A member of the RNA family "S-element" from Allomesorhizobium alhagi, 71 nucleotides long. The organism belongs to Allomesorhizobium alhagi, within Bacteria. Its family is annotated with translation regulator activity and mRNA transcription in the Gene Ontology. Rfam describes the family as follows. This family represents a group of S-elements from p42d and related plasmids. The S-element has multiple functions and is believed to act as a negative regulator of repC transcription, be required for efficient replication and act as a translational enhancer of repC. Rfam classes the family as a cis-regulatory element.

RNA sequence: UGUCAAGAGUCAUUCAGCGUCAUUUUCGGCGGGCGGACUUCUUUUGCCUAAUUGAAGGCAAACGAACUAUG
Numbered sequence: 001u002g003u004c005a006a007g008a009g010u011c012a013u014u015c016a017g018c019g020u021c022a023u024u025u026u027c028g029g030c031g032g033g034c035g036g037a038c039u040u041c042u043u044u045u046g047c048c049u050a051a052u053u054g055a056a057g058g059c060a061a062a063c064g065a066a067c068u069a070u071g
Stems, first nucleotide, its partner, number of pairs: 010065002013062002019059003023056003028052001031049001033047005